[Rfam]
RNA: DUF2800 RNA
RNA sequence: CCAUCAAAUGGUGCGUUCCCUGAUCUGGAACGGCUCAACGCUAUGCGACGGUAGAACUUAAUACACUCAGCUGACUAUUGAGCAGGAAGCUGCAUUCCGAAACGGAGCAAUCUGUGAAGGACUGCGGUAUGGUAUCUUGUUGCCAUUUUCGGUCAGCUGCCAC
Numbered sequence: 001c002c003a004u005c006a007a008a009u010g011g012u013g014c015g016u017u018c019c020c021u022g023a024u025c026u027g028g029a030a031c032g033g034c035u036c037a038a039c040g041c042u043a044u045g046c047g048a049c050g051g052u053a054g055a056a057c058u059u060a061a062u063a064c065a066c067u068c069a070g071c072u073g074a075c076u077a078u079u080g081a082g083c084a085g086g087a088a089g090c091u092g093c094a095u096u097c098c099g100a101a102a103c104g105g106a107g108c109a110a111u112c113u114g115u116g117a118a119g120g121a122c123u124g125c126g127g128u129a130u131g132g133u134a135u136c137u138u139g140u141u142g143c144c145a146u147u148u149u150c151g152g153u154c155a156g157c158u159g160c161c162a163c
Base pairs, nucleotide, nucleotide: 001051002050004048005047008044009043010042011041012040013039014032015031016030017029018028033083034082035081036080037079038078068159069158070157071156072155073154074153089128090127091126092125093124102115103114104113105112106111